[Rfam]
RNA: Betaproteobacteria transfer-messenger RNA
RNA sequence: CAUCACGGCGCAUCUUGCUAUCUUAAAUCAAUUUUGCUAUAGUAGUAAUUAAGCUGUAUAUCUGAUUGACUGACAGUUUUCUGGACGCGGGUUCGAUUCCCGCCGCCUCCACCAUAAGUGCAUUGCGCACGGCGGUGUACUUAUGAUGGGGGCGUCAUUGGUUUCGACAGGGAAAAAUAGGGAGAUUGGCAGCCGGUAGGCGAAGACCGUAAAUCUAGCAAACCUUAUAAAUGCAAAUGACGAAAGUUACGCAUUAGCCGCCUAAUAUGGUGUCGCUAGGAGUUUGAUCCACUUGGCAACAGAACGGAUUAAAGGGGCUUCGGCCCCUUUUCU
Numbered sequence: 001c002a003u004c005a006c007g008g009c010g011c012a013u014c015u016u017g018c019u020a021u022c023u024u025a026a027a028u029c030a031a032u033u034u035u036g037c038u039a040u041a042g043u044a045g046u047a048a049u050u051a052a053g054c055u056g057u058a059u060a061u062c063u064g065a066u067u068g069a070c071u072g073a074c075a076g077u078u079u080u081c082u083g084g085a086c087g088c089g090g091g092u093u094c095g096a097u098u099c100c101c102g103c104c105g106c107c108u109c110c111a112c113c114a115u116a117a118g119u120g121c122a123u124u125g126c127g128c129a130c131g132g133c134g135g136u137g138u139a140c141u142u143a144u145g146a147u148g149g150g151g152g153c154g155u156c157a158u159u160g161g162u163u164u165c166g167a168c169a170g171g172g173a174a175a176a177a178u179a180g181g182g183a184g185a186u187u188g189g190c191a192g193c194c195g196g197u198a199g200g201c202g203a204a205g206a207c208c209g210u211a212a213a214u215c216u217a218g219c220a221a222a223c224c225u226u227a228u229a230a231a232u233g234c235a236a237a238u239g240a241c242g243a244a245a246g247u248u249a250c251g252c253a254u255u256a257g258c259c260g261c262c263u264a265a266u267a268u269g270g271u272g273u274c275g276c277u278a279g280g281a282g283u284u285u286g287a288u289c290c291a292c293u294u295g296g297c298a299a300c301a302g303a304a305c306g307g308a309u310u311a312a313a314g315g316g317g318c319u320u321c322g323g324c325c326c327c328u329u330u331u332c333u
Stems, first nucleotide, its partner, number of pairs: 053193004062189002065186002070181002077174007087103005104154007194209004279294002282292002288308003311330008